The family of this 165-nucleotide sequence from Nakamurella multipartita is "c-di-AMP riboswitch aptamer (ydaO/yuaA leader)".
The match comes from Rfam's covariance-model search (81 bits).
The organism belongs to Nakamurella multipartita, within Bacteria.
Gene Ontology terms of the family: cyclic-di-AMP binding and regulation of gene expression.
[Rfam]
RNA sequence: UCCUGGUCACCGCCUAAUCGAUGCGGAUGCAUCGAACCGGGGACCCAGGUUCGUUGGGGUGAAUCCCAGGCGCGAGGCCGGCGACCGAUCGCCACCGCGCGCCGGGUAGGGCUACUUCCUGGCCCGAACCCGUCAGCUAACUCGGUCGGCGGCAAGGAAGAAGGG
Dot-bracket structure: ..........((((...(((((((....)))))))((((((....((.......))(((.....(((....................................)))..((((.........))))...))).........)))))).))))..............